[Rfam]
The family of this 62-nucleotide RNA from Nothocercus julius is "Small nucleolar RNA Z39". Rfam classes the family as a C/D-box small nucleolar RNA. The match comes from Rfam's covariance-model search (53 bits). The family's consensus secondary structure was predicted with PFOLD. The family has 5 seed sequences and 935 matches in Rfam 15.1.
RNA sequence: GUACAUAUGAUGAGUAUUGCAGUAUGAGGGGCACAGUGAUACUGUAAACGCUUUCUGAUGUA
Numbered sequence: 001g002u003a004c005a006u007a008u009g010a011u012g013a014g015u016a017u018u019g020c021a022g023u024a025u026g027a028g029g030g031g032c033a034c035a036g037u038g039a040u041a042c043u044g045u046a047a048a049c050g051c052u053u054u055c056u057g058a059u060g061u062a
Base pairs, nucleotide, nucleotide: 002062003061004060005059012054013052014051015050020044021043022042023041024040025039
On this family, see Chen et al., Nucleic Acids Res 2003: "The high diversity of snoRNAs in plants: identification and comparative study of 120 snoRNA genes from Oryza sativa". The source organism's lineage runs through Eukaryota, Metazoa, Euteleostomi, Tetrapoda and Nothocercus.